[Rfam]
RNA sequence: ACCCUUCCAAUUGUGGUGCCCACACACUAUAUUUGCUUUGUCAGCUUGUCUGACUAUGGCGAUAAACGGCCGAUGGAAUAAGCCAUUCGGACCCGGGGGCGGUACCCGGCGCCUCCACCACAAGAAGCCGGUCGCGGCUUUUUGUGAUGGGGGCGAAACAGGAUCGACGAGGGUGUAAAGAUCGGACUUUCGCUCGGCAUGAUACCACCGUUAUCGGGUCACAAUUAUAGUUGCCAACGACAACUAUGCUGAGGCUCGUCUCGCUGCCUAAUGGCGGUGCGACUGCUUCGAAUUAAGUCCUGACGGUUAGCCCCGUCAGGCGGGGCCCGGAGGCGCCUGGCAACAGAAGCCUCCACC
Numbered sequence: 001a002c003c004c005u006u007c008c009a010a011u012u013g014u015g016g017u018g019c020c021c022a023c024a025c026a027c028u029a030u031a032u033u034u035g036c037u038u039u040g041u042c043a044g045c046u047u048g049u050c051u052g053a054c055u056a057u058g059g060c061g062a063u064a065a066a067c068g069g070c071c072g073a074u075g076g077a078a079u080a081a082g083c084c085a086u087u088c089g090g091a092c093c094c095g096g097g098g099g100c101g102g103u104a105c106c107c108g109g110c111g112c113c114u115c116c117a118c119c120a121c122a123a124g125a126a127g128c129c130g131g132u133c134g135c136g137g138c139u140u141u142u143u144g145u146g147a148u149g150g151g152g153g154c155g156a157a158a159c160a161g162g163a164u165c166g167a168c169g170a171g172g173g174u175g176u177a178a179a180g181a182u183c184g185g186a187c188u189u190u191c192g193c194u195c196g197g198c199a200u201g202a203u204a205c206c207a208c209c210g211u212u213a214u215c216g217g218g219u220c221a222c223a224a225u226u227a228u229a230g231u232u233g234c235c236a237a238c239g240a241c242a243a244c245u246a247u248g249c250u251g252a253g254g255c256u257c258g259u260c261u262c263g264c265u266g267c268c269u270a271a272u273g274g275c276g277g278u279g280c281g282a283c284u285g286c287u288u289c290g291a292a293u294u295a296a297g298u299c300c301u302g303a304c305g306g307u308u309a310g311c312c313c314c315g316u317c318a319g320g321c322g323g324g325g326c327c328c329g330g331a332g333g334c335g336c337c338u339g340g341c342a343a344c345a346g347a348a349g350c351c352u353c354c355a356c357c
Stems, first nucleotide, its partner, number of pairs: 040054005058194005068187001070185005083173002087170003093109005110155007195210003200221003205217002323338004329354006

A member of the RNA family "Alphaproteobacteria transfer-messenger RNA" from Zhengella mangrovi, 357 nucleotides long. Pairs were carried over by alignment from the consensus structure, which is taken from published work. About the family: Bacterial tmRNA, also known as 10Sa RNA or SsrA, is named for its dual tRNA and mRNA-like properties. Its role is to liberate the mRNA from a stalled ribosome. To accomplish this part of the tmRNA is used as a reading frame that ends in a translation stop signal. The broken mRNA is replaced in the ribosome by the tmRNA and translation of the tmRNA leads to addition of a proteolysis tag to the incomplete protein enabling recognition by a protease. Lineage of the source: Bacteria > Pseudomonadati > Hyphomicrobiales > Notoacmeibacteraceae > Zhengella. Clan: tRNA clan.